[Rfam]
RNA sequence: UGCGUACGCCGCUCUGUCGCUUCAGCUAGACUGAAGAGGAAAGUCCGAGCAUCAGAGAGCAUCACACUUCCUAACGGGAAGGCACUUGGUAACAGGUGACAGAAAGUGCAACAGAAAGUAAACCGCCUUCGGGUAAGGGUGAAAGGGUGAGGUAAGAGCUCACCGCGUUUGUGGUGACACAAAUGGCAUGGUAAACCUUGUGAGAUGAAAGACCAAAUAGGCCUUACUUUCCUUCGGGAGUGAAGUUGCUCGCUUCACAGAGUAAUCAGGUAAGGUGGGUAGGUCGAUGGAACCUGUGAGCAAUUGCAGGUCUAGAUAAAUGACAGGGGGUGGAUCACUUUAUUUUAUAAGGCACGAACAUCACAGAACUCGGCUUAUAGGCGUACGCUUUUU
Numbered sequence: 001u002g003c004g005u006a007c008g009c010c011g012c013u014c015u016g017u018c019g020c021u022u023c024a025g026c027u028a029g030a031c032u033g034a035a036g037a038g039g040a041a042a043g044u045c046c047g048a049g050c051a052u053c054a055g056a057g058a059g060c061a062u063c064a065c066a067c068u069u070c071c072u073a074a075c076g077g078g079a080a081g082g083c084a085c086u087u088g089g090u091a092a093c094a095g096g097u098g099a100c101a102g103a104a105a106g107u108g109c110a111a112c113a114g115a116a117a118g119u120a121a122a123c124c125g126c127c128u129u130c131g132g133g134u135a136a137g138g139g140u141g142a143a144a145g146g147g148u149g150a151g152g153u154a155a156g157a158g159c160u161c162a163c164c165g166c167g168u169u170u171g172u173g174g175u176g177a178c179a180c181a182a183a184u185g186g187c188a189u190g191g192u193a194a195a196c197c198u199u200g201u202g203a204g205a206u207g208a209a210a211g212a213c214c215a216a217a218u219a220g221g222c223c224u225u226a227c228u229u230u231c232c233u234u235c236g237g238g239a240g241u242g243a244a245g246u247u248g249c250u251c252g253c254u255u256c257a258c259a260g261a262g263u264a265a266u267c268a269g270g271u272a273a274g275g276u277g278g279g280u281a282g283g284u285c286g287a288u289g290g291a292a293c294c295u296g297u298g299a300g301c302a303a304u305u306g307c308a309g310g311u312c313u314a315g316a317u318a319a320a321u322g323a324c325a326g327g328g329g330g331u332g333g334a335u336c337a338c339u340u341u342a343u344u345u346u347a348u349a350a351g352g353c354a355c356g357a358a359c360a361u362c363a364c365a366g367a368a369c370u371c372g373g374c375u376u377a378u379a380g381g382c383g384u385a386c387g388c389u390u391u392u393u
Base pairs, nucleotide, nucleotide: 002388003387004386005385006384007383008382009381010380011378012328013327014326015325016324017323018322020036021035022034023033024032025031041376042375043374045373046372047371048370049369050207051206052205053204058255062203063202064201065200066199067081068080069079070078071077082100083098084097085096086095087094088093101198102197106196107195108192109191123138124137125134126133127132146164147163148162149161150160151159165187166185167184168183169182170181171180172179173178211285212284213283214282221276222275223274224273225272226271292311293310294309295308296307297306298305299304
A member of the RNA family "Bacterial RNase P class A" from Flammeovirga pacifica, 393 nucleotides long. Rfam links the family to the GO terms dimeric ribonuclease P complex, tRNA processing and ribonuclease P activity. By type it is a ribozyme. Taxonomically the source falls in Flammeovirga (Bacteria, Cytophagia, Cytophagales, Flammeovirgaceae).